RNA sequence: CAGGUGGCUAGACUGGCCAGUCGAAAAGCACUUACCUCCGUGCCUGCCGCGCUUCCAUACGGGGG
Numbered sequence: 001c002a003g004g005u006g007g008c009u010a011g012a013c014u015g016g017c018c019a020g021u022c023g024a025a026a027a028g029c030a031c032u033u034a035c036c037u038c039c040g041u042g043c044c045u046g047c048c049g050c051g052c053u054u055c056c057a058u059a060c061g062g063g064g065g
Stems, first nucleotide, its partner, number of pairs: 001051001004050005011022004028043004035065005
RNA: int-alpA RNA
Organism: Miecznikowavirus AH14a